RNA sequence: GUUCAGCACUAAGUAGUGGUGCCGUAGUAACGUUUAUUAAUCUUACUGCAGUAUCUCUGCUUAAUGCUGCGC
Numbered sequence: 001g002u003u004c005a006g007c008a009c010u011a012a013g014u015a016g017u018g019g020u021g022c023c024g025u026a027g028u029a030a031c032g033u034u035u036a037u038u039a040a041u042c043u044u045a046c047u048g049c050a051g052u053a054u055c056u057c058u059g060c061u062u063a064a065u066g067c068u069g070c071g072c
Stems, first nucleotide, its partner, number of pairs: 001072002004069004010063007018055002024049007
Dot-bracket structure: ((.((((..(((((((.((....(((((((............)))))))....)).)))))))..)))).))

A member of the RNA family "mir-252 microRNA precursor family" from Rhodnius prolixus, 72 nucleotides long.
The family has 44 seed sequences and 422 matches in Rfam 15.1.